[Rfam]
RNA sequence: CCACCUUAAGACCGCGCUUGCCAGCCUCGGCUGGGCGGCUCCCGGCGCGCGACCAAUG
Numbered sequence: 001c002c003a004c005c006u007u008a009a010g011a012c013c014g015c016g017c018u019u020g021c022c023a024g025c026c027u028c029g030g031c032u033g034g035g036c037g038g039c040u041c042c043c044g045g046c047g048c049g050c051g052a053c054c055a056a057u058g
Stems, first nucleotide, its partner, number of pairs: 009027002013024001014021002030050002033048001034046001036044003
Rfam assigns this 58-nucleotide RNA from Ictidomys tridecemlineatus to the family "p27 cis-regulatory element". A reference for the family is Gopfert et al. (2003), "Cell cycle-dependent translation of p27 involves a responsive element in its 5'-UTR that overlaps with a uORF", Hum Mol Genet. Pairs were carried over by alignment from the consensus structure, which was predicted with PFOLD. NCBI's taxonomy places the organism under Eukaryota, Deuterostomia, Chordata, Marmotini, Ictidomys. It is one of the family's seed sequences.